[Rfam]
RNA sequence: GGCGGUAGAGGUGAUGGAGCUCACCUGAACCGCCGGCAAAGGGCUAAUGGCUCCUGUGGAUGA
Numbered sequence: 001g002g003c004g005g006u007a008g009a010g011g012u013g014a015u016g017g018a019g020c021u022c023a024c025c026u027g028a029a030c031c032g033c034c035g036g037c038a039a040a041g042g043g044c045u046a047a048u049g050g051c052u053c054c055u056g057u058g059g060a061u062g063a
Stems, first nucleotide, its partner, number of pairs: 010025004016054006032044003
Rfam assigns this 63-nucleotide sequence from Paenalicyclobacillus mengziensis to the family "Fluoride riboswitch aptamer (crcB RNA motif)". Rfam 15.1 lists 2,293 matches to the family in 1,982 species. Its family is annotated with positive regulation of gene expression and response to fluoride in the Gene Ontology. For this family Rfam cites "Widespread genetic switches and toxicity resistance proteins for fluoride" (Baker et al., Science, 2012).